[Rfam]
RNA sequence: UGUCUCCUCCAUGUCUCAACCGAUAUGGAUUCAGCCCGCUCUUCGUGAGCGGGUUUUUUUUU
Numbered sequence: 001u002g003u004c005u006c007c008u009c010c011a012u013g014u015c016u017c018a019a020c021c022g023a024u025a026u027g028g029a030u031u032c033a034g035c036c037c038g039c040u041c042u043u044c045g046u047g048a049g050c051g052g053g054u055u056u057u058u059u060u061u062u
Base pairs, nucleotide, nucleotide: 008029009028010027011026012025013024014023015022033055034054035053036052037051038050039049040048

A member of the RNA family "Betaproteobacteria toxic small RNA" from Robbsia andropogonis, 62 nucleotides long. The match comes from Rfam's covariance-model search (67 bits).